[Rfam]
RNA sequence: AGAAGCCCUCUGUGGCCAGGGUGGAACGCUUGCCUCGUCGCCGUGGUGAUGAAGCAAGCAUUCCACCAGGCUGCUCAUGCUGCCUGC
Numbered sequence: 001a002g003a004a005g006c007c008c009u010c011u012g013u014g015g016c017c018a019g020g021g022u023g024g025a026a027c028g029c030u031u032g033c034c035u036c037g038u039c040g041c042c043g044u045g046g047u048g049a050u051g052a053a054g055c056a057a058g059c060a061u062u063c064c065a066c067c068a069g070g071c072u073g074c075u076c077a078u079g080c081u082g083c084c085u086g087c
Stems, first nucleotide, its partner, number of pairs: 005083002012074006020067007028059006037050005
A member of the RNA family "mir-9195 microRNA precursor family" from Myotis lucifugus, 87 nucleotides long. It scores 94 bits against the family's covariance model.